[Rfam]
RNA sequence: AAGCCAGCCAGCUAAUCUUAUCUGAAUGUGUUUCUGCAGAAAGUUUGAAUAAUCUGGCAAUAGUGGUGGCAUUUUAUAAGUUUAAGGACAACUGAGGUCAUUAUAGUCCUUCAAAAUGGCUACAAUA
Numbered sequence: 001a002a003g004c005c006a007g008c009c010a011g012c013u014a015a016u017c018u019u020a021u022c023u024g025a026a027u028g029u030g031u032u033u034c035u036g037c038a039g040a041a042a043g044u045u046u047g048a049a050u051a052a053u054c055u056g057g058c059a060a061u062a063g064u065g066g067u068g069g070c071a072u073u074u075u076a077u078a079a080g081u082u083u084a085a086g087g088a089c090a091a092c093u094g095a096g097g098u099c100a101u102u103a104u105a106g107u108c109c110u111u112c113a114a115a116a117u118g119g120c121u122a123c124a125a126u127a
Stems, first nucleotide, its partner, number of pairs: 003058005016040002068120001070118002080107003083103003087099003
The record is a 127-nucleotide RNA sequence from Jaculus jaculus, which matches "Small nucleolar RNA SNORA33" in Rfam. A search with the family's covariance model found it, with a score of 85 bits. Gene Ontology terms of the family: nucleolus and RNA processing. NCBI's taxonomy places the organism under Eukaryota, Deuterostomia, Theria, Myomorpha, Jaculus. The family's consensus secondary structure was predicted with PFOLD. About the family: ACA33 is a member of the H/ACA class of snoRNA that guide the sites of modification of uridines to pseudouridines. It is annotated as an H/ACA-box small nucleolar RNA. Rfam 15.1 lists 1,176 matches to the family in 522 species.